[Rfam]
RNA sequence: ACCAACCACCUUCCUACUCGGAUCGUCCGGCACGUUCCUGCCGGUAGAAGGGGGCCUUC
Numbered sequence: 001a002c003c004a005a006c007c008a009c010c011u012u013c014c015u016a017c018u019c020g021g022a023u024c025g026u027c028c029g030g031c032a033c034g035u036u037c038c039u040g041c042c043g044g045u046a047g048a049a050g051g052g053g054g055c056c057u058u059c
Base pairs, nucleotide, nucleotide: 010051011050012049014047015046016045027044028043029042030041031040032039
RNA: msiK RNA
Organism: Streptomyces griseoviridis